A member of the RNA family "Small nucleolar RNA SNORD121A" from Aquarana catesbeiana, 82 nucleotides long. The match comes from Rfam's covariance-model search (78 bits). By type it is a C/D-box small nucleolar RNA. Its family is annotated with RNA processing and nucleolus in the Gene Ontology.

RNA sequence: GUCCAGAACACAAUGAUGUUUUAUUUCCAAGCACAUAUCUGAAUCUUGUGUGUUGAAAACAAUAGCACUGAGUGCUCUGGAU
Numbered sequence: 001g002u003c004c005a006g007a008a009c010a011c012a013a014u015g016a017u018g019u020u021u022u023a024u025u026u027c028c029a030a031g032c033a034c035a036u037a038u039c040u041g042a043a044u045c046u047u048g049u050g051u052g053u054u055g056a057a058a059a060c061a062a063u064a065g066c067a068c069u070g071a072g073u074g075c076u077c078u079g080g081a082u
Base pairs, nucleotide, nucleotide: 001082002081003080004079005078006077009074010073011072
Dot-bracket structure: ((((((..(((............................................................)))..))))))